[Rfam]
RNA: Archaeal large subunit ribosomal RNA, nucleotides 910 to 1356
Nucleotides: 447
Base pairs, nucleotide, nucleotide: 001388002387003386004385005384006383011024012023013022014021015020026135027132028131029130030129031128032127036120037119038118040117041116042115043114044113046111047110052105053103054102059098061096063094064093065092066091067090072087073086074085075084076083077082139163140162141161142160143159144158145157146156147155168179169178170177183360184359185358186357187356188355189354193350194349195348202347204346205345206344207343208342209341227321228320229319231318232317233316234315235314236313237312238311239310240309248305249304250303251302252301254278255277256276259273260272261271279283284299288297289296361378362377363374364373365372366371389442391439392438393437394436395435396434397433398432399431400430407426408425409424410423411422412421414419
Number, partner (000 for none) and nucleotide at each position: 001388c002387c003386u004385c005384u006383c007000g008000a009000a010000a011024c012023a013022u014021g015020c016000c017000g018000c019000a020015g021014c022013a023012u024011g025000a026135c027132c028131u029130g030129g031128c032127c033000g034000g035000a036120g037119a038118u039000c040117g041116a042115u043114g044113g045000u046111g047110a048000g049000g050000u051000a052105g053103a054102g055000c056000a057000c058000c059098g060000a061096u062000u063094g064093g065092g066091g067090g068000a069000g070000c071000u072087g073086g074085g075084g076083g077082a078000g079000a080000a081000a082077u083076c084075c085074c086073u087072c088000a089000c090067c091066c092065u093064c094063c095000u096061g097000c098059c099000g100000a101000a102054c103053u104000c105052c106000a107000a108000a109000c110047u111046c112000c113044c114043c115042a116041u117040c118038a119037u120036c121000c122000u123000a124000g125000a126000u127032g128031g129030c130029c131028g132027g133000a134000a135026g136000u137000c138000c139163g140162g141161g142160c143159u144158a145157c146156g147155g148000g149000g150000u151000a152000a153000g154000c155147u156146u157145g158144u159143a160142g161141u162140c163139c164000g165000u166000a167000a168179g169178g170177g171000a172000g173000a174000c175000a176000a177170c178169c179168c180000a181000g182000a183360c184359c185358g186357u187356g188355g189354u190000u191000a192000a193350u194349g195348u196000c197000c198000c199000u200000c201000a202347a203000u204346g205345u206344a207343g208342g209341c210000u211000a212000a213000g214000u215000g216000u217000a218000a219000a220000c221000a222000c223000u224000g225000a226000a227321a228320g229319u230000g231318g232317u233316c234315c235314u236313a237312g238311g239310u240309c241000a242000a243000a244000g245000a246000c247000a248305a249304c250303u251302g252301g253000g254278a255277g256276g257000u258000g259273a260272g261271c262000u263000c264000a265000g266000a267000a268000g269000c270000a271261g272260c273259u274000a275000u276256c277255c278254u279283u280000u281000a282000a283279a284299a285000a286000g287000u288297g289296c290000g291000u292000a293000a294000c295000a296289g297288c298000u299284u300000a301252c302251c303250a304249g305248u306000c307000a308000a309240g310239a311238u312237u313236u314235a315234g316233g317232g318231c319229g320228c321227u322000g323000a324000a325000a326000a327000u328000g329000g330000a331000c332000g333000g334000g335000g336000c337000u338000c339000a340000a341209g342208c343207c344206u345205a346204c347202u348195a349194c350193a351000g352000a353000g354189a355188c356187c357186a358185c359184g360183g361378a362377g363374c364373a365372c366371c367000g368000a369000a370000a371366g372365g373364u374363g375000a376000u377362c378361u379000c380000g381000u382000a383006g384005a385004g386003a387002g388001g389442c390000g391439u392438u393437c394436u395435g396434c397433a398432u399431g400430g401000g402000c403000a404000g405000a406000a407426g408425c409424u410423g411422g412421g413000g414419c415000g416000u417000a418000a419414g420000g421412u422411c423410c424409a425408g426407u427000g428000g429000a430400c431399c432398g433397u434396g435395c436394a437393g438392a439391a440000u441000u442389g443000a444000g445000a446000a447000u